Archaeal RNase P: a 294-nucleotide RNA sequence from Methanosphaera sp. SHI613. Rfam classes the family as a ribozyme. It scores 152 bits against the family's covariance model. On this family, see Frank and Pace, Annu Rev Biochem 1998: "Ribonuclease P: unity and diversity in a tRNA processing ribozyme". Ribonuclease P (RNase P) is a ubiquitous endoribonuclease, found in archaea, bacteria and eukarya as well as chloroplasts and mitochondria. Its best characterised activity is the generation of mature 5'-ends of tRNAs by cleaving the 5'-leader elements of precursor-tRNAs. NCBI's taxonomy places the organism under Archaea, Methanobacteriati, Methanobacteriota, Methanobacteriaceae, Methanosphaera.
RNA sequence: GUAAGUCGGUGUGCAGUUAACGGUUUUUUGUAAACUGAGGAAACUCCAUCCACCAUUAAUAACCAUGAUGUUCUUAAUUGACAUACACUAAGAAGUGUGACACUGAUAUAGAAACGAUACGAUAGGACUAAAUUUAGGCUAUAAUGAAUGAUACGAUUGGGUUGACUAGCCUUAACAUAGUAAAUCGGUGAAACGAUCUAAUCCAUGGGGUGCAAGAGUAAAUAGUCGUUUGACAAGGUAACUUGCUUAGAUAAAUGCUGCAUAGAAACAUGAGAUGGGUUACUACCGGCAUGC
Numbered sequence: 001g002u003a004a005g006u007c008g009g010u011g012u013g014c015a016g017u018u019a020a021c022g023g024u025u026u027u028u029u030g031u032a033a034a035c036u037g038a039g040g041a042a043a044c045u046c047c048a049u050c051c052a053c054c055a056u057u058a059a060u061a062a063c064c065a066u067g068a069u070g071u072u073c074u075u076a077a078u079u080g081a082c083a084u085a086c087a088c089u090a091a092g093a094a095g096u097g098u099g100a101c102a103c104u105g106a107u108a109u110a111g112a113a114a115c116g117a118u119a120c121g122a123u124a125g126g127a128c129u130a131a132a133u134u135u136a137g138g139c140u141a142u143a144a145u146g147a148a149u150g151a152u153a154c155g156a157u158u159g160g161g162u163u164g165a166c167u168a169g170c171c172u173u174a175a176c177a178u179a180g181u182a183a184a185u186c187g188g189u190g191a192a193a194c195g196a197u198c199u200a201a202u203c204c205a206u207g208g209g210g211u212g213c214a215a216g217a218g219u220a221a222a223u224a225g226u227c228g229u230u231u232g233a234c235a236a237g238g239u240a241a242c243u244u245g246c247u248u249a250g251a252u253a254a255a256u257g258c259u260g261c262a263u264a265g266a267a268a269c270a271u272g273a274g275a276u277g278g279g280u281u282a283c284u285a286c287c288g289g290c291a292u293g294c
Stems, first nucleotide, its partner, number of pairs: 001294003005290005011283001012262006021037005042281003046278005051212004063208005068084005085098005099203002105198003120187003123182001127181004141162002216244004225234003